Rfam assigns this 70-nucleotide RNA sequence from Salarias fasciatus to the family "miR-430 microRNA precursor family". Rfam links the family to the GO terms RISC complex and miRNA-mediated post-transcriptional gene silencing. A search with the family's covariance model found it, with a score of 49 bits. The family's consensus secondary structure was predicted with RNAalifold. Taxonomically the source falls in Salarias (Eukaryota, Actinopterygii, Eurypterygia, Ctenosquamata). On this family, see Giraldez et al., Science 2005: "MicroRNAs regulate brain morphogenesis in zebrafish".

RNA sequence: AAUACUACACUAACAAGAGCACGGACUUGAUUUCUCAAUGCAGUAAGUGCUUUCUGUUGGUGGAGUAUGG
Numbered sequence: 001a002a003u004a005c006u007a008c009a010c011u012a013a014c015a016a017g018a019g020c021a022c023g024g025a026c027u028u029g030a031u032u033u034c035u036c037a038a039u040g041c042a043g044u045a046a047g048u049g050c051u052u053u054c055u056g057u058u059g060g061u062g063g064a065g066u067a068u069g070g
Base pairs, nucleotide, nucleotide: 004066005065006064008062009061010060011059013057014056015055017053018051019050020049021048022047025044026043027042